About this RNA: This 105-nucleotide RNA sequence from Sparus aurata belongs to the Rfam family "Vault RNA". This family of RNAs are found as part of the enigmatic vault ribonucleoprotein complex. The complex consists of a major vault protein (MVP), two minor vault proteins (VPARP and TEP1), and several small untranslated RNA molecules. It has been suggested that the vault complex is involved in drug resistance.

RNA sequence: GCACUGGUUUUGCUCCGCGGUUACUUACUCCUCAAAUCUACUUGGGAGCUUCCGCGGUCUCUAUCCCUCCCUGGGAUCCAACUGCGUGCGCUGUCCAGUGUCUUC
Numbered sequence: 001g002c003a004c005u006g007g008u009u010u011u012g013c014u015c016c017g018c019g020g021u022u023a024c025u026u027a028c029u030c031c032u033c034a035a036a037u038c039u040a041c042u043u044g045g046g047a048g049c050u051u052c053c054g055c056g057g058u059c060u061c062u063a064u065c066c067c068u069c070c071c072u073g074g075g076a077u078c079c080a081a082c083u084g085c086g087u088g089c090g091c092u093g094u095c096c097a098g099u100g101u102c103u104u105c
Base pairs, nucleotide, nucleotide: 002100003099004098005097006096007095012089013088015086017085018084019083020082025081026080
The family's RNA type in Rfam is non-coding RNA gene. A search with the family's covariance model found it, with a score of 36 bits. The base pairs follow the family's consensus structure, which is taken from published work.